This 168-nucleotide sequence from Trinickia caryophylli belongs to the Rfam family "FMN riboswitch aptamer (RFN element)".

RNA sequence: AUGCGUCUUCAGGGCGGGGCGAAAUUCCCCACCGGCGGUAAGCCGGCUUUGUGCCGGCGAGCCCGCGAGCGCCCGUGUCGCGGCCUUCAGUCGGGCUGCGGCGCGGGGUCAGCAGAUCUGGUGCGAUGCCAGGGCCGACGGUCAUAGUCCGGAUGGAAGAAGAUGCAA
Numbered sequence: 001a002u003g004c005g006u007c008u009u010c011a012g013g014g015c016g017g018g019g020c021g022a023a024a025u026u027c028c029c030c031a032c033c034g035g036c037g038g039u040a041a042g043c044c045g046g047c048u049u050u051g052u053g054c055c056g057g058c059g060a061g062c063c064c065g066c067g068a069g070c071g072c073c074c075g076u077g078u079c080g081c082g083g084c085c086u087u088c089a090g091u092c093g094g095g096c097u098g099c100g101g102c103g104c105g106g107g108g109u110c111a112g113c114a115g116a117u118c119u120g121g122u123g124c125g126a127u128g129c130c131a132g133g134g135c136c137g138a139c140g141g142u143c144a145u146a147g148u149c150c151g152g153a154u155g156g157a158a159g160a161a162g163a164u165g166c167a168a
Stems, first nucleotide, its partner, number of pairs: 003166008017029003031148002033137002035066004061135002069113002117133005139151003
Dot-bracket structure: ..((((((((......(((.......))).[[((((((......................[[))))..((.........................................))...(((((.......)))))]])).(((.....]]))).......))))))))..